Rfam assigns this 77-nucleotide RNA from Chamaesiphon minutus to the family "CyVA-1 RNA".
Rfam's curators put it in the seed alignment.
RNA sequence: UCGCUGGCGGGGAGUUUUACCGUUGUGUCCCCUUGCUGCAUCUCGAAGGAGAGCGAUGUCAUCGAUGCAGACAGCCC
Numbered sequence: 001u002c003g004c005u006g007g008c009g010g011g012g013a014g015u016u017u018u019a020c021c022g023u024u025g026u027g028u029c030c031c032c033u034u035g036c037u038g039c040a041u042c043u044c045g046a047a048g049g050a051g052a053g054c055g056a057u058g059u060c061a062u063c064g065a066u067g068c069a070g071a072c073a074g075c076c077c
Base pairs, nucleotide, nucleotide: 003075004074005073006072009032010031011030012029037069038068039067040066041065042064

Overview:
Taxonomically the source falls in Chamaesiphon minutus (Bacteria, Cyanophyceae, Chamaesiphonaceae, Chamaesiphon). Rfam classes the family as a small RNA. About the family: Cyanobacteria, Acidobacteria (1 example), Verrucomicrobia (1 example).